The record is a 130-nucleotide RNA sequence, which matches "Small nucleolar RNA SNORA47" in Rfam. Gene Ontology terms of the family: RNA processing and nucleolus.
RNA sequence: UGGAGGACUGAGAAGGUAAGACAGUUUUAACUUGGUACUGUAUCUUACUGGUUAUGGCCUCCGAAAUUAUAAGGGUGCAAUGGCAAUUCAUGUUUCCCUCCCGACAUGAGGGAAAGCGAUGCUGCAUUUG
Numbered sequence: 001u002g003g004a005g006g007a008c009u010g011a012g013a014a015g016g017u018a019a020g021a022c023a024g025u026u027u028u029a030a031c032u033u034g035g036u037a038c039u040g041u042a043u044c045u046u047a048c049u050g051g052u053u054a055u056g057g058c059c060u061c062c063g064a065a066a067u068u069a070u071a072a073g074g075g076u077g078c079a080a081u082g083g084c085a086a087u088u089c090a091u092g093u094u095u096c097c098c099u100c101c102c103g104a105c106a107u108g109a110g111g112g113a114a115a116g117c118g119a120u121g122c123u124g125c126a127u128u129u130g
Stems, first nucleotide, its partner, number of pairs: 002062005015049004019043001021041005082123003086120003094114005101108001
It is one of the family's seed sequences.